[Rfam]
This 76-nucleotide RNA from Myotis myotis belongs to the Rfam family "mir-9229 microRNA precursor family". Taxonomically the source falls in Myotis (Eukaryota, Opisthokonta, Craniata, Sarcopterygii). Gene Ontology terms of the family: RISC complex and miRNA-mediated post-transcriptional gene silencing.
Nucleotides: 076
Stems, first nucleotide, its partner, number of pairs: 001075001003073005009067003014062002017059003021056001023054001029053008038043001
Number, partner (000 for none) and nucleotide at each position: 001075g002000a003073g004072a005071c006070a007069c008000c009067c010066u011065u012000c013000u014062g015061g016000g017059g018058c019057a020000a021056g022000a023054c024000u025000u026000g027000c028000u029053u030052c031051a032050g033049u034048g035047g036046g037000g038043c039000u040000u041000u042000g043038g044000g045000g046036c047035u048034c049033a050032c051031u052030g053029a054023g055000a056021c057019u058018g059017c060000a061015c062014c063000c064000u065011g066010a067009g068000u069007g070006u071005g072004u073003c074000c075001c076000u
The match comes from Rfam's covariance-model search (79 bits).